[Rfam]
RNA: Small nucleolar RNA R12
Organism: Hordeum vulgare
RNA sequence: AUCUGGCUGAUGAAUAAAAUCGUUCGGAUUCCCACUGAUUUGUCAUGAUUAUUACAACCAGCUACUUCUGACAGAU
Numbered sequence: 001a002u003c004u005g006g007c008u009g010a011u012g013a014a015u016a017a018a019a020u021c022g023u024u025c026g027g028a029u030u031c032c033c034a035c036u037g038a039u040u041u042g043u044c045a046u047g048a049u050u051a052u053u054a055c056a057a058c059c060a061g062c063u064a065c066u067u068c069u070g071a072c073a074g075a076u
Base pairs, nucleotide, nucleotide: 001076002075003074004073005072